This 89-nucleotide RNA from Sporosarcina limicola belongs to the Rfam family "c-di-GMP-I riboswitch aptamer". The family's consensus secondary structure is taken from published work.
RNA sequence: ACUAAAUAAAGGUAAAACCACUGAAAAGUGGUGACACAAAACUAAAGGGGCUAAGAUGUAUUGCUACAUGAUGCCAGCCAGUUGCCAAC
Numbered sequence: 001a002c003u004a005a006a007u008a009a010a011g012g013u014a015a016a017a018c019c020a021c022u023g024a025a026a027a028g029u030g031g032u033g034a035c036a037c038a039a040a041a042c043u044a045a046a047g048g049g050g051c052u053a054a055g056a057u058g059u060a061u062u063g064c065u066a067c068a069u070g071a072u073g074c075c076a077g078c079c080a081g082u083u084g085c086c087a088a089c
Base pairs, nucleotide, nucleotide: 012037013036017032018031019030020029021028022027040083041082042081043080047079048078049075050074051073056069057068058067059066